[Rfam]
RNA sequence: AAUACUUGCACGGGGUGCUUAACCAGUAAUGGUGAGGCUGAGAUAAUACCCGAUAAACCUGAUACGGAUAAUACCGGCGUAGGGAUGCAUGGGCUUUAAUGU
Number, nucleotide and partner (000 for none) at each position: 001a000002a000003u000004a000005c000006u000007u089008g088009c087010a086011c052012g051013g050014g049015g000016u046017g038018c037019u036020u035021a000022a000023c000024c000025a000026g000027u000028a000029a000030u000031g000032g000033u000034g000035a020036g019037g018038c017039u000040g000041a000042g000043a000044u000045a000046a016047u000048a000049c014050c013051c012052g011053a000054u000055a000056a000057a000058c083059c082060u081061g080062a000063u000064a000065c076066g075067g074068a000069u000070a000071a000072u000073a000074c067075c066076g065077g000078c000079g000080u061081a060082g059083g058084g000085a000086u010087g009088c008089a007090u000091g000092g000093g000094c000095u000096u000097u000098a000099a000100u000101g000102u000
Background:
Shown here is a 102-nucleotide RNA sequence from Mucilaginibacter aquatilis, a member of the family "TPP riboswitch aptamer (THI element)". Rfam describes the family as follows. Vitamin B(1) in its active form thiamin pyrophosphate (TPP) is an essential coenzyme that is synthesised by coupling of pyrimidine and thiazole moieties in bacteria. The source organism's lineage runs through Bacteria, Pseudomonadati, Sphingobacteriia, Sphingobacteriaceae and Mucilaginibacter.